[Rfam]
RNA sequence: CGCCGUUCGAGUGACUGGCGUUGAAGGUGGGUGACCACCGGGGAGCUCGGAACGCAUAUGCCGCGCGCCUGGGCUCCUUUC
Numbered sequence: 001c002g003c004c005g006u007u008c009g010a011g012u013g014a015c016u017g018g019c020g021u022u023g024a025a026g027g028u029g030g031g032u033g034a035c036c037a038c039c040g041g042g043g044a045g046c047u048c049g050g051a052a053c054g055c056a057u058a059u060g061c062c063g064c065g066c067g068c069c070u071g072g073g074c075u076c077c078u079u080u081c
Stems, first nucleotide, its partner, number of pairs: 003054001006051007015042002017069005027038004060074003
RNA: ZMP/ZTP riboswitch aptamer (pfl RNA motif)